[Rfam]
RNA sequence: AUCAUGCAUUCAUACUUCAUACAUUCCAUGUACCAUGUAAUUGGUACAUGGAAUGUAUGAAGUAUGAAUCAAGGAA
Dot-bracket structure: .......(((((((((((((((((.(((((................))))).))))))))))))))))).......